Notes
The record is a 167-nucleotide RNA sequence, which matches "Group II catalytic intron D1-D4-3" in Rfam. The base pairs follow the family's consensus structure.

RNA sequence: GUGAGGGUGACCGAGCGUGGGGGAGGCAGGCUAUCUGAAAACUGCCAGCUGAUGAACAAGAACAUCAUACGAGGCGCACAGAGUGGGGUGAGUGAGCACAACAUCACGAAAUCCCGUCAUUCGGCUCUGUGCGUAAAUGAUGCGGUUGGGCAGUGGAGGUUUCAGGA
Numbered sequence: 001g002u003g004a005g006g007g008u009g010a011c012c013g014a015g016c017g018u019g020g021g022g023g024a025g026g027c028a029g030g031c032u033a034u035c036u037g038a039a040a041a042c043u044g045c046c047a048g049c050u051g052a053u054g055a056a057c058a059a060g061a062a063c064a065u066c067a068u069a070c071g072a073g074g075c076g077c078a079c080a081g082a083g084u085g086g087g088g089u090g091a092g093u094g095a096g097c098a099c100a101a102c103a104u105c106a107c108g109a110a111a112u113c114c115c116g117u118c119a120u121u122c123g124g125c126u127c128u129g130u131g132c133g134u135a136a137a138u139g140a141u142g143c144g145g146u147u148g149g150g151c152a153g154u155g156g157a158g159g160u161u162u163c164a165g166g167a
Stems, first nucleotide, its partner, number of pairs: 002013002031165002041154006047147005063142006074134010086114004092107004

The sequence is in the family's curated seed alignment.